[Rfam]
RNA: Small Cajal body specific RNA 16
Organism: Lophotis ruficrista
RNA sequence: CAGGGCUGGGGAAGGGCUGCUGGGUGGCGGGGCCGGCGGGCCCAGCCGCGUCCCAGCCAGCCCCACCCGCGCCCCAGAGCAGCUCCCGGCCGGCUCCGGCUGGGCCCGUGCUGUGCAGUAACAGGUGUGAGCAUUCACGCAGCGUCCUGAUGGUCAUGUAUGAUACUGCGCACAGCC
Number, nucleotide and partner (000 for none) at each position: 001c000002a000003g074004g073005g072006c071007u000008g068009g067010g066011g000012a000013a000014g000015g062016g061017c060018u059019g057020c056021u055022g054023g000024g053025u000026g047027g046028c045029g000030g043031g000032g041033c040034c039035g000036g000037c000038g000039g034040g033041c032042c000043c030044a000045g028046c027047c026048g000049c000050g000051u000052c000053c024054c022055a021056g020057c019058c000059a018060g017061c016062c015063c000064c000065a000066c010067c009068c008069g000070c000071g006072c005073c004074c003075c000076a000077g000078a000079g000080c000081a000082g000083c000084u000085c000086c104087c103088g000089g100090c099091c098092g097093g000094c000095u000096c000097c092098g091099g090100c089101u000102g000103g087104g086105c000106c000107c000108g000109u000110g000111c000112u172113g171114u170115g169116c168117a167118g166119u165120a164121a000122c162123a161124g000125g000126u000127g000128u156129g155130a154131g000132c152133a151134u150135u149136c000137a000138c000139g146140c000141a000142g000143c000144g000145u000146c139147c000148u000149g135150a134151u133152g132153g000154u130155c129156a128157u000158g000159u000160a000161u123162g122163a000164u120165a119166c118167u117168g116169c115170g114171c113172a112173c000174a000175g000176c000177c000